Shown here is a 96-nucleotide RNA from Canis lupus, a member of the family "mir-8799 microRNA precursor family". Lineage of the source: Eukaryota > Deuterostomia > Gnathostomata > Sarcopterygii > Canis lupus. Gene Ontology terms of the family: RISC complex and miRNA-mediated post-transcriptional gene silencing. The match comes from Rfam's covariance-model search (47 bits).
[Rfam]
RNA sequence: UGGGGGAGCUCAGGAUCCUGGGCUGUGUCCCCAGCGCCCUGGGCUCUAGGGCCUAUACUGCUGGAAUCACGCUCCCUGCCACCAAUCCAGCCGCCA
Numbered sequence: 001u002g003g004g005g006g007a008g009c010u011c012a013g014g015a016u017c018c019u020g021g022g023c024u025g026u027g028u029c030c031c032c033a034g035c036g037c038c039c040u041g042g043g044c045u046c047u048a049g050g051g052c053c054u055a056u057a058c059u060g061c062u063g064g065a066a067u068c069a070c071g072c073u074c075c076c077u078g079c080c081a082c083c084a085a086u087c088c089a090g091c092c093g094c095c096a
Stems, first nucleotide, its partner, number of pairs: 001096003005092002010084001013080002017078001020075003024071004028065002031063001032060003036056001041053001043052003